[Rfam]
RNA: Bacteroidetes FopS (family of paralogous sRNAs)
Organism: Prevotella sp. P3-122
RNA sequence: GUGUUUUUCAUGGUAUUAGAUUAUUAAGGUUUAAACGGAGGAUGGUUGUCGUGAGACAACCAUCCUUUUAUGUG
Numbered sequence: 001g002u003g004u005u006u007u008u009c010a011u012g013g014u015a016u017u018a019g020a021u022u023a024u025u026a027a028g029g030u031u032u033a034a035a036c037g038g039a040g041g042a043u044g045g046u047u048g049u050c051g052u053g054a055g056a057c058a059a060c061c062a063u064c065c066u067u068u069u070a071u072g073u074g
Stems, first nucleotide, its partner, number of pairs: 044061007